The record is a 190-nucleotide RNA from Anopheles sinensis, which matches "drz-agam-2-2 ribozyme" in Rfam.
Pairs were carried over by alignment from the consensus structure, which is taken from published work.
The literature on the family includes a 2009 paper in Science by Webb et al., "Widespread occurrence of self-cleaving ribozymes".
NCBI's taxonomy places the organism under Eukaryota, Eumetazoa, Ecdysozoa, Anopheles, Myzorhynchus.
It scores 174 bits against the family's covariance model.
The family has 5 seed sequences and 486 matches in Rfam 15.1.

RNA sequence: CUCAGUAUAUAGUUCUGUAACGGGGUGGAUCCGACGCCUCUUGAAGGCUACUAUAGGCUCUCCUCCCCAACUCCUACUCAAUACGUCCGCGACGUACAGAACGGUAACUUGUCACCUAAAUAUCCAAGCUUGGGUACACGGGGAAACCCACCCCCUUGCGCGGAUGGGCGGCAAGGCUGAAUUGGAGGGG
Numbered sequence: 001c002u003c004a005g006u007a008u009a010u011a012g013u014u015c016u017g018u019a020a021c022g023g024g025g026u027g028g029a030u031c032c033g034a035c036g037c038c039u040c041u042u043g044a045a046g047g048c049u050a051c052u053a054u055a056g057g058c059u060c061u062c063c064u065c066c067c068c069a070a071c072u073c074c075u076a077c078u079c080a081a082u083a084c085g086u087c088c089g090c091g092a093c094g095u096a097c098a099g100a101a102c103g104g105u106a107a108c109u110u111g112u113c114a115c116c117u118a119a120a121u122a123u124c125c126a127a128g129c130u131u132g133g134g135u136a137c138a139c140g141g142g143g144a145a146a147c148c149c150a151c152c153c154c155c156u157u158g159c160g161c162g163g164a165u166g167g168g169c170g171g172c173a174a175g176g177c178u179g180a181a182u183u184g185g186a187g188g189g190g
Stems, first nucleotide, its partner, number of pairs: 013100002022068004027063003031057002072190004078185005083095003087104002108175006115168003122165004131150005153160001